Description
Shown here is a 115-nucleotide RNA from Marinilactibacillus sp. 15R, a member of the family "23S methyl RNA motif". For this family Rfam cites "Identification of 22 candidate structured RNAs in bacteria using the CMfinder comparative genomics pipeline" (Weinberg et al., Nucleic Acids Res, 2007). NCBI's taxonomy places the organism under Bacteria, Bacillati, Bacillota, Lactobacillales, Marinilactibacillus. It scores 59 bits against the family's covariance model.
RNA sequence: GGUUCAUUGGUUUUUAUCAGUCACCCCAUCAGAAGCUGAUAAAAAAAUGUGAAAAACAACAGCUUAAUUAACGUAUCGUUUCGCAGUGCAUGACACCGAGGCGAUACGUUUUUUU
Numbered sequence: 001g002g003u004u005c006a007u008u009g010g011u012u013u014u015u016a017u018c019a020g021u022c023a024c025c026c027c028a029u030c031a032g033a034a035g036c037u038g039a040u041a042a043a044a045a046a047a048u049g050u051g052a053a054a055a056a057c058a059a060c061a062g063c064u065u066a067a068u069u070a071a072c073g074u075a076u077c078g079u080u081u082c083g084c085a086g087u088g089c090a091u092g093a094c095a096c097c098g099a100g101g102c103g104a105u106a107c108g109u110u111u112u113u114u115u
Stems, first nucleotide, its partner, number of pairs: 003053005011045011070110014086096003